RNA: Small nucleolar RNA snoR2/U65
RNA sequence: AUUUUGAGCCACGUUGAUGGUAGUCUAAAUGACAAUGACCAUCAAUACUAUGAUUGGGCCUAUGUAAAUUCCACAUUUCGUAUCUUGAUUGGAAUCUGUAGACUGAUUUACCAUUCAUCUACAGAACCAUUUUGUGCGAUUACAUCU
Numbered sequence: 001a002u003u004u005u006g007a008g009c010c011a012c013g014u015u016g017a018u019g020g021u022a023g024u025c026u027a028a029a030u031g032a033c034a035a036u037g038a039c040c041a042u043c044a045a046u047a048c049u050a051u052g053a054u055u056g057g058g059c060c061u062a063u064g065u066a067a068a069u070u071c072c073a074c075a076u077u078u079c080g081u082a083u084c085u086u087g088a089u090u091g092g093a094a095u096c097u098g099u100a101g102a103c104u105g106a107u108u109u110a111c112c113a114u115u116c117a118u119c120u121a122c123a124g125a126a127c128c129a130u131u132u133u134g135u136g137c138g139a140u141u142a143c144a145u146c147u
Base pairs, nucleotide, nucleotide: 003058004057005056006055007054008051013046014045015044016043017042019040020039021038023033024032025031078139079138080137081136082135091128092127096124097123098122100120101119102118